[Rfam]
RNA sequence: AAAUAUUUGAGGGGGAGCUCCUAUAAAGGGGCUGAGAAAGGGCUUAAUAGCACCUGACCCUUAAACCUGAUCAGGGUAAUGCCUGCGGAGGGAAUUUUAGGAAUGUUACAU
Number, nucleotide and partner (000 for none) at each position: 001a000002a000003a000004u000005a000006u099007u000008u000009g096010a095011g061012g060013g059014g058015g000016a055017g032018c031019u030020c029021c028022u000023a000024u000025a000026a000027a000028g021029g020030g019031g018032c017033u000034g000035a000036g000037a000038a000039a000040g053041g000042g051043c050044u000045u000046a000047a000048u000049a000050g043051c042052a000053c040054c000055u016056g000057a000058c014059c013060c012061u011062u000063a000064a000065a000066c091067c090068u089069g000070a000071u000072c085073a084074g083075g082076g000077u000078a000079a000080u000081g000082c075083c074084u073085g072086c000087g000088g000089a068090g067091g066092g000093a000094a000095u010096u009097u000098u000099a006100g000101g000102a000103a000104u000105g000106u000107u000108a000109c000110a000111u000
Rfam assigns this 111-nucleotide sequence from Tepidibacillus sp. HK-1 to the family "TPP riboswitch aptamer (THI element)".
Pairs were carried over by alignment from the consensus structure, which is taken from published work.
The match comes from Rfam's covariance-model search (65 bits).